This 116-nucleotide sequence from Theobroma cacao belongs to the Rfam family "small nucleolar RNA snoR126". The family has 4 seed sequences and 423 matches in Rfam 15.1. It is annotated as a C/D-box small nucleolar RNA. The source organism's lineage runs through Eukaryota, Embryophyta, Pentapetalae, Byttnerioideae and Theobroma.
RNA sequence: GGGCAAUGAUGAUAGAUUUACGUUUCUGGAUUCUGAUUUCAAUUUUUUUCUUAAAUUCUUUUAAUUUAAGGACUAAACAGCUUUCUAAUGACAGCAUUUGUGCGUGUAUGAGCCUC
Dot-bracket structure: ((((...........................................................................................................)))).